Notes: A member of the RNA family "Eukaryotic large subunit ribosomal RNA" from Microbotryum intermedium, 437 nucleotides of a longer RNA. A reference for the family is Cannone et al. (2002), "The comparative RNA web (CRW) site: an online database of comparative sequence and structure information for ribosomal, intron, and other RNAs", BMC Bioinformatics. Its family is annotated with structural constituent of ribosome and ribosome in the Gene Ontology. Pairs were carried over by alignment from the consensus structure, which is taken from published work. It scores 3356 bits against the family's covariance model. The source organism's lineage runs through Eukaryota, Opisthokonta, Basidiomycota, Pucciniomycotina and Microbotryum.

RNA sequence: GGUAGUAGCAAAUAUUCAAGUGAGAACCUUGAAGACUGAAGUGGGGAAGGGUUCCAUGGUAACAGCAGUUGGACAUGGGUGAGUCGGUCCUAAGAGAUAGGGAAAUUCCGUUUCAAAGUGCGCGCUUGUUCGCGCCACCUAUCGAAAGGGAAUACGGUUAAAAUUCCGUAACCGAGAUGCAGAUUCUGAACGGUGACGUAAAUGAACUUGGAGACGCCGGUAAGGGCCUUGGGAAGAGUUAUCUUUUCUCCUUUACAAUCUAUAACCCUGGAAUCGGAUUAUCCGGAGAUAGGGUCUAAUGGUUGGUAGAGCAUUGCUAUUUUGUGAUGUCCGGUGCGUCCUUAACGGCCCUUGAAAAUCCGAGGGAAUGAAAAAGUCUUGCACUCGCUCGUACCCAUAUCCGCAUCAGGUCCCCAAGGUGAUCAGCCUCUAGUCCA
Numbered sequence: 001g002g003u004a005g006u007a008g009c010a011a012a013u014a015u016u017c018a019a020g021u022g023a024g025a026a027c028c029u030u031g032a033a034g035a036c037u038g039a040a041g042u043g044g045g046g047a048a049g050g051g052u053u054c055c056a057u058g059g060u061a062a063c064a065g066c067a068g069u070u071g072g073a074c075a076u077g078g079g080u081g082a083g084u085c086g087g088u089c090c091u092a093a094g095a096g097a098u099a100g101g102g103a104a105a106u107u108c109c110g111u112u113u114c115a116a117a118g119u120g121c122g123c124g125c126u127u128g129u130u131c132g133c134g135c136c137a138c139c140u141a142u143c144g145a146a147a148g149g150g151a152a153u154a155c156g157g158u159u160a161a162a163a164u165u166c167c168g169u170a171a172c173c174g175a176g177a178u179g180c181a182g183a184u185u186c187u188g189a190a191c192g193g194u195g196a197c198g199u200a201a202a203u204g205a206a207c208u209u210g211g212a213g214a215c216g217c218c219g220g221u222a223a224g225g226g227c228c229u230u231g232g233g234a235a236g237a238g239u240u241a242u243c244u245u246u247u248c249u250c251c252u253u254u255a256c257a258a259u260c261u262a263u264a265a266c267c268c269u270g271g272a273a274u275c276g277g278a279u280u281a282u283c284c285g286g287a288g289a290u291a292g293g294g295u296c297u298a299a300u301g302g303u304u305g306g307u308a309g310a311g312c313a314u315u316g317c318u319a320u321u322u323u324g325u326g327a328u329g330u331c332c333g334g335u336g337c338g339u340c341c342u343u344a345a346c347g348g349c350c351c352u353u354g355a356a357a358a359u360c361c362g363a364g365g366g367a368a369u370g371a372a373a374a375a376g377u378c379u380u381g382c383a384c385u386c387g388c389u390c391g392u393a394c395c396c397a398u399a400u401c402c403g404c405a406u407c408a409g410g411u412c413c414c415c416a417a418g419g420u421g422a423u424c425a426g427c428c429u430c431u432a433g434u435c436c437a
Stems, first nucleotide, its partner, number of pairs: 015033006034435004043415004049395002054078005063071002085391003089149002094143002096112003100109003121134002153170005173387004178383005183377002190199003207364006216349004221344007229334003232252002235249003256305005265295006274286004312329006401410002417429004